[Rfam]
RNA sequence: GAUGACAAGUAGAAGCACCCGCUUCUCACCUGCUCGACGCGUAAGUAGUUGACUGGUUUACAUCUUUUAUGAACGAUUAAAAGACAUGUGGGUGCAUUCGUGUGCCCACAUUUUUGUUUGAUU
Numbered sequence: 001g002a003u004g005a006c007a008a009g010u011a012g013a014a015g016c017a018c019c020c021g022c023u024u025c026u027c028a029c030c031u032g033c034u035c036g037a038c039g040c041g042u043a044a045g046u047a048g049u050u051g052a053c054u055g056g057u058u059u060a061c062a063u064c065u066u067u068u069a070u071g072a073a074c075g076a077u078u079a080a081a082a083g084a085c086a087u088g089u090g091g092g093u094g095c096a097u098u099c100g101u102g103u104g105c106c107c108a109c110a111u112u113u114u115u116g117u118u119u120g121a122u123u
Stems, first nucleotide, its partner, number of pairs: 011026006028057003036050003039046002087110010
Background:
Ribosomal protein L20 leader: a 123-nucleotide RNA from Ornithinibacillus hominis. It scores 75 bits against the family's covariance model. Rfam describes the family as follows. This family is a putative r-protein leader autoregulatory structure found in B. subtilis and other low-GC Gram-positive bacteria. It is located in the 5' untranslated regions of mRNAs encoding initiation factor 3 followed by ribosomal proteins L35 and L20 (infC-rpmI-rplT). Its family is annotated with regulation of gene expression in the Gene Ontology. Rfam classes the family as a cis-regulatory leader.